[Rfam]
The family of this 138-nucleotide RNA sequence from Bacillus sp. NRRL B-14911 is "Ribosomal protein L10 leader". Rfam classes the family as a cis-regulatory leader. It is one of the family's seed sequences. The source organism's lineage runs through Bacteria, Bacillati, Caryophanales, Bacillaceae and Bacillus.
RNA sequence: AAUAAAAUAACAUUUGUACCGUAGACAGCAGGUGCGACAGCUUAAUUUCCUGCCGAGGUCAUACGAUAGAUUUUCUUUUGAACGGCUAUUGUAUACUUCCUCCAUGUCUGCAAGAUGUGGAGGUUUUUCUUUGGACGG
Numbered sequence: 001a002a003u004a005a006a007a008u009a010a011c012a013u014u015u016g017u018a019c020c021g022u023a024g025a026c027a028g029c030a031g032g033u034g035c036g037a038c039a040g041c042u043u044a045a046u047u048u049c050c051u052g053c054c055g056a057g058g059u060c061a062u063a064c065g066a067u068a069g070a071u072u073u074u075c076u077u078u079u080g081a082a083c084g085g086c087u088a089u090u091g092u093a094u095a096c097u098u099c100c101u102c103c104a105u106g107u108c109u110g111c112a113a114g115a116u117g118u119g120g121a122g123g124u125u126u127u128u129c130u131u132u133g134g135a136c137g138g
Stems, first nucleotide, its partner, number of pairs: 028053005034041002099123010